[Rfam]
RNA sequence: AACUUAACAGAAUACUAUUUUCAUAUAAUCGCAGGGAUAAGGCCUGCAAGUUUCUACCGGUUUACCGUAAAUGAACCGACUAUGAAAAAGCAGUAUAAAUCA
Numbered sequence: 001a002a003c004u005u006a007a008c009a010g011a012a013u014a015c016u017a018u019u020u021u022c023a024u025a026u027a028a029u030c031g032c033a034g035g036g037a038u039a040a041g042g043c044c045u046g047c048a049a050g051u052u053u054c055u056a057c058c059g060g061u062u063u064a065c066c067g068u069a070a071a072u073g074a075a076c077c078g079a080c081u082a083u084g085a086a087a088a089a090g091c092a093g094u095a096u097a098a099a100u101c102a
Stems, first nucleotide, its partner, number of pairs: 018088008029049001031047005058078007
Description:
Purine riboswitch aptamer: a 102-nucleotide RNA from Oceanobacillus bengalensis. Taxonomically the source falls in Oceanobacillus (Bacteria, Bacillota, Bacilli, Caryophanales). Rfam's curators write: Riboswitches are metabolite binding domains within certain messenger RNAs that serve as precision sensors for their corresponding targets. Allosteric rearrangement of mRNA structure is mediated by ligand binding, and this results in modulation of gene expression. A class of riboswitches that selectively recognises guanine and becomes saturated at concentrations as low as 5 nM. In Bacillus subtilis, this mRNA motif is located on at least five separate transcriptional units that together encode 17 genes that are mostly involved in purine transport and purine nucleotide biosynthesis. It has also been shown that some members of this family are specific for adenine instead. Hence this family are termed purine riboswitches. It scores 89 bits against the family's covariance model.